[Rfam]
RNA: Actino-pnp RNA
RNA sequence: ACCGGUCCUCGGUAGUGGCCCCCGGAACGUCGGCCAGCGCCGGCCUCCGUGAGCCUCGAUCGAUGACCGCC
Numbered sequence: 001a002c003c004g005g006u007c008c009u010c011g012g013u014a015g016u017g018g019c020c021c022c023c024g025g026a027a028c029g030u031c032g033g034c035c036a037g038c039g040c041c042g043g044c045c046u047c048c049g050u051g052a053g054c055c056u057c058g059a060u061c062g063a064u065g066a067c068c069g070c071c
Base pairs, nucleotide, nucleotide: 003069004068005067006066007065009063010062011061012060013059017055018054019053021051023049024048025047026046